[Rfam]
RNA sequence: UAGCUUUGUCCUAAGUCAAACUUCUUCAAGUUUGACCAAGUUUAUAGAAAAAUCAAUUAAGAUCUACAAUAUCAAAUGGAAAUAUAUAUAAUGAUAAAUUUAAUAUGACUAAUUUGGAGCUCUAGAUGUUGGUAGUUCUUUUCUAUAAACUUGGUCAAACUUAAAGAAGUUUGACUUAGGACAAAGCUAG
Numbered sequence: 001u002a003g004c005u006u007u008g009u010c011c012u013a014a015g016u017c018a019a020a021c022u023u024c025u026u027c028a029a030g031u032u033u034g035a036c037c038a039a040g041u042u043u044a045u046a047g048a049a050a051a052a053u054c055a056a057u058u059a060a061g062a063u064c065u066a067c068a069a070u071a072u073c074a075a076a077u078g079g080a081a082a083u084a085u086a087u088a089u090a091a092u093g094a095u096a097a098a099u100u101u102a103a104u105a106u107g108a109c110u111a112a113u114u115u116g117g118a119g120c121u122c123u124a125g126a127u128g129u130u131g132g133u134a135g136u137u138c139u140u141u142u143c144u145a146u147a148a149a150c151u152u153g154g155u156c157a158a159a160c161u162u163a164a165a166g167a168a169g170u171u172u173g174a175c176u177u178a179g180g181a182c183a184a185a186g187c188u189a190g
Base pairs, nucleotide, nucleotide: 005185006184007183008182009181011179012178013177014176015175016174017173018172019171020170021169022168023167024166025165026164031159032158033157034156035155045145046144047143048142049141050140051139052137056133057132059130060129062127063126064125065124066123068121072117073116074115075114076113077112

Rfam assigns this 190-nucleotide sequence from Brachypodium distachyon to the family "MIR1435 microRNA precursor family". The family's consensus secondary structure was predicted with RNAalifold.